[Rfam]
RNA: Selenocysteine transfer RNA
RNA sequence: GGGGAUGGAGCGUUGCUGGAGUUGCGCGCGGUCUUCAAAACCGUUGUGGGGCAGAUUUACGCUGUCCUGGGUGGGUUCGAUUCCCACGCAUCCCC
Numbered sequence: 001g002g003g004g005a006u007g008g009a010g011c012g013u014u015g016c017u018g019g020a021g022u023u024g025c026g027c028g029c030g031g032u033c034u035u036c037a038a039a040a041c042c043g044u045u046g047u048g049g050g051g052c053a054g055a056u057u058u059a060c061g062c063u064g065u066c067c068u069g070g071g072u073g074g075g076u077u078c079g080a081u082u083c084c085c086a087c088g089c090a091u092c093c094c095c
Stems, first nucleotide, its partner, number of pairs: 001095007008087001011026003015022002028044005047069007072086004